[Rfam]
RNA sequence: CUUUUCCUUCGGGGCAGGGUGAAAUUCCCGACCGGCGGUGAUGGACGGUAUUCCCGUUCUCAGUCCGUGACCCGUAAACAGGAUGUUUGCGGUGGAUCCGGUGAAAAUCCGGGACCGACAGUGAAAGUCUGGAUGGGAGAAGGAAAGA
Numbered sequence: 001c002u003u004u005u006c007c008u009u010c011g012g013g014g015c016a017g018g019g020u021g022a023a024a025u026u027c028c029c030g031a032c033c034g035g036c037g038g039u040g041a042u043g044g045a046c047g048g049u050a051u052u053c054c055c056g057u058u059c060u061c062a063g064u065c066c067g068u069g070a071c072c073c074g075u076a077a078a079c080a081g082g083a084u085g086u087u088u089g090c091g092g093u094g095g096a097u098c099c100g101g102u103g104a105a106a107a108u109c110c111g112g113g114a115c116c117g118a119c120a121g122u123g124a125a126a127g128u129c130u131g132g133a134u135g136g137g138a139g140a141a142g143g144a145a146a147g148a
Stems, first nucleotide, its partner, number of pairs: 003146008017029003031128002033117002035068004063115002072092002097113005119131003
Dot-bracket structure: ..((((((((......(((.......))).[[((((((........................[[))))...((.................))....(((((.......)))))]])).(((.....]]))).......))))))))..
RNA: FMN riboswitch aptamer (RFN element)